Notes: A member of the RNA family "DUF805b RNA", 35 nucleotides long. It is annotated as a cis-regulatory element.

RNA sequence: CAAGGACAAGCCGAAAACCUUAAAAAGAGUAGGCC
Numbered sequence: 001c002a003a004g005g006a007c008a009a010g011c012c013g014a015a016a017a018c019c020u021u022a023a024a025a026a027g028a029g030u031a032g033g034c035c
Base pairs, nucleotide, nucleotide: 002021003020004019005018010034011033012032
Dot-bracket structure: .((((....[[[.....))))..........]]].